[Rfam]
RNA sequence: AACAAUUUGUCCCGCAUCCCGCGGCAUUUUAAAAAAGUCCCGAUUUUUGGAAAGAUUCUUUAAAAUGCUGCGGGAUGCGGGGCAAAUUGUUAA
Numbered sequence: 001a002a003c004a005a006u007u008u009g010u011c012c013c014g015c016a017u018c019c020c021g022c023g024g025c026a027u028u029u030u031a032a033a034a035a036a037g038u039c040c041c042g043a044u045u046u047u048u049g050g051a052a053a054g055a056u057u058c059u060u061u062a063a064a065a066u067g068c069u070g071c072g073g074g075a076u077g078c079g080g081g082g083c084a085a086a087u088u089g090u091u092a093a
Base pairs, nucleotide, nucleotide: 001091002090003089004088005087006086007085008084009083010082011081012080013079014078015077016076017075018074019073020072021071022070023069024068025067026066027065028064029063030062031061032060033059035057
RNA: mir-9261 microRNA precursor family